Rfam assigns this 51-nucleotide sequence from Treponema bryantii to the family "DUF3800-XI RNA".
It is one of the family's seed sequences.
NCBI's taxonomy places the organism under Bacteria, Spirochaetota, Treponematales, Treponema, Treponema bryantii.
Pairs were carried over by alignment from the consensus structure, which is taken from published work.
Actinobacteria, Firmicutes, Proteobacteria, Spirochaetes (1 example).
Rfam classes the family as a small RNA.
[Rfam]
RNA sequence: UGGGCUGGUCGAAAGACCCUGGUCCAACCUACGACGGCGGGCAAACUGACC
Numbered sequence: 001u002g003g004g005c006u007g008g009u010c011g012a013a014a015g016a017c018c019c020u021g022g023u024c025c026a027a028c029c030u031a032c033g034a035c036g037g038c039g040g041g042c043a044a045a046c047u048g049a050c051c
Stems, first nucleotide, its partner, number of pairs: 001026006007018004